[Rfam]
Record summary:
Shown here is an 86-nucleotide sequence from Sulfitobacter sabulilitoris, a member of the family "Singlet oxygen resistance RNA X". The family has 8 seed sequences and 528 matches in Rfam 15.1. By type it is a small RNA. NCBI's taxonomy places the organism under Bacteria, Pseudomonadati, Alphaproteobacteria, Roseobacteraceae, Sulfitobacter. A reference for the family is Peng et al. (2016), "Regulation of a polyamine transporter by the conserved 3' UTR-derived sRNA SorX confers resistance to singlet oxygen and organic hydroperoxides in Rhodobacter sphaeroides", RNA Biol. From the family's description: SorX (RSs2461)like SorY is a singlet oxygen induced sRNA that counteracts oxidative stress by targeting mRNA for a transporter in Rhodobacter. It also has an impact on resistance against organic hydroperoxides. It targets SD sequence of potA mRNA via an aSD sequence. The aSD sequence and some neighbouring nucleotides are identical to the one of SorY (targets takP mRNA).
RNA sequence: ACCUAUCGAAGGCGCAGGUCACCUCGGGUGGCGCGCCUUCAACCUCCCUGUUGGACUUGGCCGGGCCUUUGCGCCCGGUCUUUUUU
Numbered sequence: 001a002c003c004u005a006u007c008g009a010a011g012g013c014g015c016a017g018g019u020c021a022c023c024u025c026g027g028g029u030g031g032c033g034c035g036c037c038u039u040c041a042a043c044c045u046c047c048c049u050g051u052u053g054g055a056c057u058u059g060g061c062c063g064g065g066c067c068u069u070u071g072c073g074c075c076c077g078g079u080c081u082u083u084u085u086u
Base pairs, nucleotide, nucleotide: 008040009039010038011037012036013035014034059080060079061078062077063076064075065074066073